[Rfam]
RNA sequence: GACAGAGUAGGCCCAGUGCGUCAAGUGCCGACCGGACGGGAAGUUGCCGGCGGACGAAGGGUUUUUACAGCCCGCGAUGCUGUGCCGCAUUCCGCUGCC
Numbered sequence: 001g002a003c004a005g006a007g008u009a010g011g012c013c014c015a016g017u018g019c020g021u022c023a024a025g026u027g028c029c030g031a032c033c034g035g036a037c038g039g040g041a042a043g044u045u046g047c048c049g050g051c052g053g054a055c056g057a058a059g060g061g062u063u064u065u066u067a068c069a070g071c072c073c074g075c076g077a078u079g080c081u082g083u084g085c086c087g088c089a090u091u092c093c094g095c096u097g098c099c
Stems, first nucleotide, its partner, number of pairs: 001099001003097003010086003014082005019076003025055002028053003032050004039092003043088001059073004